[Rfam]
RNA sequence: UUUGAGGGGAAUGUUGUCUGGUUCGAGACAACUGUGGAAGAGACCUCGGACCAGGCUUCAUCCCCCCCAAU
Dot-bracket structure: .(((.((((.(((..((((((..(((...................)))..))))))..))).)))).))).
RNA: mir-166 microRNA precursor family
Organism: Musa troglodytarum